[Rfam]
RNA sequence: AAAAGUCUUCAGGGCGGGGCGAAAUUCCCCACCGGCGGUAAAUCUAUCACAGAUAAGCCCGCGAGCGCUUUGUUAUGAUCGUUGUAAGAAAGGCAGCUGAUUUGGUUAAAAUCCAAAGCCGACGGUUACAGUCCGGAUGAAAGAAGAUGCAU
Numbered sequence: 001a002a003a004a005g006u007c008u009u010c011a012g013g014g015c016g017g018g019g020c021g022a023a024a025u026u027c028c029c030c031a032c033c034g035g036c037g038g039u040a041a042a043u044c045u046a047u048c049a050c051a052g053a054u055a056a057g058c059c060c061g062c063g064a065g066c067g068c069u070u071u072g073u074u075a076u077g078a079u080c081g082u083u084g085u086a087a088g089a090a091a092g093g094c095a096g097c098u099g100a101u102u103u104g105g106u107u108a109a110a111a112u113c114c115a116a117a118g119c120c121g122a123c124g125g126u127u128a129c130a131g132u133c134c135g136g137a138u139g140a141a142a143g144a145a146g147a148u149g150c151a152u
Stems, first nucleotide, its partner, number of pairs: 005148006017029003031132002033121002035062004057119002065097002101117005123135003

Rfam assigns this 152-nucleotide sequence from Entomomonas asaccharolytica to the family "FMN riboswitch aptamer (RFN element)". It scores 116 bits against the family's covariance model. The base pairs follow the family's consensus structure, which is taken from published work. Its family is annotated with FMN binding in the Gene Ontology. NCBI's taxonomy places the organism under Bacteria, Pseudomonadati, Pseudomonadota, Pseudomonadales, Entomomonas.